RNA sequence: AUUUCCACUGCUGCUCUGAGAGGACCCAUCUUCCCUGGACUGGGAAUUCCUGGAGAGCUGCGUUUGUGAGCAGUUGGCAGGAAUUUCCUAAGUCCCAUCUCUUCAUUUUCAUUUGUGUUGCACUUUGGAACAUCCAGAAACC
Numbered sequence: 001a002u003u004u005c006c007a008c009u010g011c012u013g014c015u016c017u018g019a020g021a022g023g024a025c026c027c028a029u030c031u032u033c034c035c036u037g038g039a040c041u042g043g044g045a046a047u048u049c050c051u052g053g054a055g056a057g058c059u060g061c062g063u064u065u066g067u068g069a070g071c072a073g074u075u076g077g078c079a080g081g082a083a084u085u086u087c088c089u090a091a092g093u094c095c096c097a098u099c100u101c102u103u104c105a106u107u108u109u110c111a112u113u114u115g116u117g118u119u120g121c122a123c124u125u126u127g128g129a130a131c132a133u134c135c136a137g138a139a140a141c142c
Base pairs, nucleotide, nucleotide: 006077010074011073012072014070015069016068017066018065019064020063022061024059027057037050038049039048084140085139086138087137093130095128096127
The record is a 142-nucleotide RNA sequence from Myotis davidii, which matches "ODC internal ribosome entry site (IRES)" in Rfam. Its family is annotated with ribosome binding in the Gene Ontology. The source organism's lineage runs through Eukaryota, Deuterostomia, Theria, Yangochiroptera and Myotis.